This 110-nucleotide RNA sequence from Oceanobacillus zhaokaii belongs to the Rfam family "SAM riboswitch aptamer (S box leader)". NCBI's taxonomy places the organism under Bacteria, Bacillati, Bacilli, Bacillaceae, Oceanobacillus. The match comes from Rfam's covariance-model search (99 bits). The family's consensus secondary structure is taken from published work.

[Rfam]
RNA sequence: UUCUUAUCCAGAGAGACGGAGGGACUGGCCCAACGAUGUCUCAGCAACCAACCUUUAAUGGUUAAGGUGCUAAUUCCAGUAGGUAGAUUUUUCUGCCUAAAAGAUAAGAG
Number, nucleotide and partner (000 for none) at each position: 001u110002u109003c108004u107005u106006a105007u104008c103009c000010a000011g000012a000013g042014a041015g040016a039017c038018g000019g000020a000021g031022g030023g029024a000025c079026u078027g077028g076029c023030c022031c021032a000033a000034c000035g000036a000037u000038g017039u016040c015041u014042c013043a071044g070045c069046a068047a000048c067049c066050a063051a062052c061053c060054u000055u000056u000057a000058a000059u000060g053061g052062u051063u050064a000065a000066g049067g048068u046069g045070c044071u043072a000073a000074u000075u102076c028077c027078a026079g025080u099081a098082g097083g096084u095085a094086g000087a000088u000089u000090u000091u000092u000093c000094u085095g084096c083097c082098u081099a080100a000101a000102a075103g008104a007105u006106a005107a004108g003109a002110g001